The record is a 102-nucleotide RNA sequence from Marinitoga piezophila, which matches "Purine riboswitch aptamer" in Rfam.
A search with the family's covariance model found it, with a score of 92 bits.
RNA sequence: AUUCUGGAAUUUUUCUUUUCCUAUAUAAUUCCGGUAAUAUGGUCCGGAAGUCUCUACCAGAUGGCCGUAAACCAUCUGACUAUAGGAAAAGGGGAGCUUAAU
Dot-bracket structure: .................((((((((...((((((.........))))))........(((((((.......)))))))..))))))))..............
About the family: Riboswitches are metabolite binding domains within certain messenger RNAs that serve as precision sensors for their corresponding targets. The base pairs follow the family's consensus structure, which is taken from published work.